[Rfam]
RNA sequence: AAAGGAGCAAUAACCAAUUUCUUGUUUUCUCAAGAGGAUUGGUAUUGCUCCUUUUUUA
Dot-bracket structure: ((((((((((((.(....((((((......))))))....).))))))))))))....

Rfam assigns this 58-nucleotide sequence from Cucumis melo to the family "Plastid-psbA-3 3UTR RNA". By type it is a cis-regulatory element. Plastid psbA-3 is a non-coding RNA (ncRNA) present in plastids. It was identified in inverted repeat sequences in the 3 prime untranslate region (3UTR) of photosystem II quinone-binding protein (psbA). It scores 67 bits against the family's covariance model. A reference for the family is Richter et al. (2023), "Retrograde signaling in plants: A critical review focusing on the GUN pathway and beyond", Plant Commun.